[Rfam]
Plant small nucleolar RNA R71: a 107-nucleotide sequence from Brassica carinata. The family's RNA type in Rfam is C/D-box small nucleolar RNA. For this family Rfam cites "Plant snoRNAs: functional evolution and new modes of gene expression" (Brown et al., Trends Plant Sci, 2003). The organism belongs to Brassica, within Eukaryota.

RNA sequence: AAGCCAUGAUAUGGCUAUUGAGACCAAUAGCCCUUGAACCUCUCCCAUGCUUCACUAAAGCUCUCAAGGUUCUUCUGCUGAAAGUUAGAGAUCUCAUUUCUGAUCUU
Numbered sequence: 001a002a003g004c005c006a007u008g009a010u011a012u013g014g015c016u017a018u019u020g021a022g023a024c025c026a027a028u029a030g031c032c033c034u035u036g037a038a039c040c041u042c043u044c045c046c047a048u049g050c051u052u053c054a055c056u057a058a059a060g061c062u063c064u065c066a067a068g069g070u071u072c073u074u075c076u077g078c079u080g081a082a083a084g085u086u087a088g089a090g091a092u093c094u095c096a097u098u099u100c101u102g103a104u105c106u107u
Stems, first nucleotide, its partner, number of pairs: 001107001003105001005102002057074002060071001

Rfam links the family to the GO terms RNA processing and nucleolus. A search with the family's covariance model found it, with a score of 87 bits.